This 75-nucleotide RNA sequence from Hydrogenovibrio marinus belongs to the Rfam family "c-di-GMP-I riboswitch aptamer". The family's consensus secondary structure is taken from published work. Gene Ontology term of the family: cyclic-di-GMP binding.
[Rfam]
RNA sequence: AUAAUGUUGAGCCAAACUUACUGUGAAGUAAGGACGGAAAGCCACGGGUCUUUCUAAGAUAGCCGGGUUGCCAUU
Numbered sequence: 001a002u003a004a005u006g007u008u009g010a011g012c013c014a015a016a017c018u019u020a021c022u023g024u025g026a027a028g029u030a031a032g033g034a035c036g037g038a039a040a041g042c043c044a045c046g047g048g049u050c051u052u053u054c055u056a057a058g059a060u061a062g063c064c065g066g067g068u069u070g071c072c073a074u075u
Base pairs, nucleotide, nucleotide: 012037013036017032018031019030020029021028022027040069041068042067043066045065046064047063048060049059050058